[Rfam]
RNA sequence: UGGCUGUGACGACAAAAGGAUAUUUUGUUCAUUCUGAUUCUUAAUGCCAAUUAAGGACCAAUCGUGAUGACCUUAUUUGUGCGUGUCUGAGCCGA
Numbered sequence: 001u002g003g004c005u006g007u008g009a010c011g012a013c014a015a016a017a018g019g020a021u022a023u024u025u026u027g028u029u030c031a032u033u034c035u036g037a038u039u040c041u042u043a044a045u046g047c048c049a050a051u052u053a054a055g056g057a058c059c060a061a062u063c064g065u066g067a068u069g070a071c072c073u074u075a076u077u078u079g080u081g082c083g084u085g086u087c088u089g090a091g092c093c094g095a
Stems, first nucleotide, its partner, number of pairs: 001094004
RNA: small nucleolar RNA snoR126